Shown here is a 96-nucleotide RNA sequence from Nicotiana sylvestris, a member of the family "MIR6152 microRNA precursor family". Rfam links the family to the GO terms miRNA-mediated post-transcriptional gene silencing and RISC complex. The match comes from Rfam's covariance-model search (85 bits). Lineage of the source: Eukaryota > Viridiplantae > Euphyllophyta > Nicotianeae > Nicotiana.
[Rfam]
RNA sequence: UGGAUAAAUUAUUGUAUUCGACUGUAUUUACGGCGUGAAACAAGGGAUUAUACUAUUUUUAAAUGGAAAGUGAAUCAAUUAACUUAAUAGACACCU
Numbered sequence: 001u002g003g004a005u006a007a008a009u010u011a012u013u014g015u016a017u018u019c020g021a022c023u024g025u026a027u028u029u030a031c032g033g034c035g036u037g038a039a040a041c042a043a044g045g046g047a048u049u050a051u052a053c054u055a056u057u058u059u060u061a062a063a064u065g066g067a068a069a070g071u072g073a074a075u076c077a078a079u080u081a082a083c084u085u086a087a088u089a090g091a092c093a094c095c096u
Stems, first nucleotide, its partner, number of pairs: 002095002009090006017082002020080002023077002026075006034065003037059004042054001